RNA sequence: CUACUGUGCCAACUGGUGGAUCGCUCGGCUCGAGAGCCGACGACGGACGUGCCAAGCUGCGAUAAGCUCGGGGGACCCGCACGGAGGGGAAGAACCCGAGAUCUCCGAAUAGGAAUCCUCUUGCAAUUGCUUAGCGCAAUGGGGAACGUCGAGAAUUGAAACAUCUUAGUAUCGACAGGAAAAGAAAGCAAACCGCGAUGUCGUUAGUAACGGCGAGUGAACCCGACACAGUCCAAACCGAAGCCCUCACGGGCAAUGUGGUGUUCGGACUGACUCUCAGCACUCGACCAUCGACGAGAAAUCCCUUGGAAUAGGGUACGAAACAGGGUGACAGUCCCGUACCGUCGAUCACUAAAGUGUGCGUCAGCUCCAGAGUAGCGGGGGUUGGAAAUCCCUCGUGAAAACCGCGGGCAUUGACCGCGAAGACUAAACACUCCUCGAGACCGAUAGCGAACAAGUAGCGUGAGCGAACGCUGAAAAGCACCCCAAAAAGGGAGGUGCAAUAGGGCGUGAACUCAGUUGGCGAUAGAGC
Numbered sequence: 001c002u003a004c005u006g007u008g009c010c011a012a013c014u015g016g017u018g019g020a021u022c023g024c025u026c027g028g029c030u031c032g033a034g035a036g037c038c039g040a041c042g043a044c045g046g047a048c049g050u051g052c053c054a055a056g057c058u059g060c061g062a063u064a065a066g067c068u069c070g071g072g073g074g075a076c077c078c079g080c081a082c083g084g085a086g087g088g089g090a091a092g093a094a095c096c097c098g099a100g101a102u103c104u105c106c107g108a109a110u111a112g113g114a115a116u117c118c119u120c121u122u123g124c125a126a127u128u129g130c131u132u133a134g135c136g137c138a139a140u141g142g143g144g145a146a147c148g149u150c151g152a153g154a155a156u157u158g159a160a161a162c163a164u165c166u167u168a169g170u171a172u173c174g175a176c177a178g179g180a181a182a183a184g185a186a187a188g189c190a191a192a193c194c195g196c197g198a199u200g201u202c203g204u205u206a207g208u209a210a211c212g213g214c215g216a217g218u219g220a221a222c223c224c225g226a227c228a229c230a231g232u233c234c235a236a237a238c239c240g241a242a243g244c245c246c247u248c249a250c251g252g253g254c255a256a257u258g259u260g261g262u263g264u265u266c267g268g269a270c271u272g273a274c275u276c277u278c279a280g281c282a283c284u285c286g287a288c289c290a291u292c293g294a295c296g297a298g299a300a301a302u303c304c305c306u307u308g309g310a311a312u313a314g315g316g317u318a319c320g321a322a323a324c325a326g327g328g329u330g331a332c333a334g335u336c337c338c339g340u341a342c343c344g345u346c347g348a349u350c351a352c353u354a355a356a357g358u359g360u361g362c363g364u365c366a367g368c369u370c371c372a373g374a375g376u377a378g379c380g381g382g383g384g385u386u387g388g389a390a391a392u393c394c395c396u397c398g399u400g401a402a403a404a405c406c407g408c409g410g411g412c413a414u415u416g417a418c419c420g421c422g423a424a425g426a427c428u429a430a431a432c433a434c435u436c437c438u439c440g441a442g443a444c445c446g447a448u449a450g451c452g453a454a455c456a457a458g459u460a461g462c463g464u465g466a467g468c469g470a471a472c473g474c475u476g477a478a479a480a481g482c483a484c485c486c487c488a489a490a491a492a493g494g495g496a497g498g499u500g501c502a503a504u505a506g507g508g509c510g511u512g513a514a515c516u517c518a519g520u521u522g523g524c525g526a527u528a529g530a531g532c
Stems, first nucleotide, its partner, number of pairs: 007525010022510001023474002027445002029442006035435002044107004048061003067100006076088003111119003126140005147178001148176005158165002188196002200227004210218002230428004238261003243254004271366004281359004295344002301317001303316004320324001326338003378399007406422005461468002
This 532-nucleotide part of an RNA from Natronosalvus rutilus belongs to the Rfam family "Archaeal large subunit ribosomal RNA".
The base pairs follow the family's consensus structure, which is taken from published work.
It scores 2831 bits against the family's covariance model.
The source organism's lineage runs through Archaea, Methanobacteriati, Methanobacteriota, Natrialbaceae and Natronosalvus.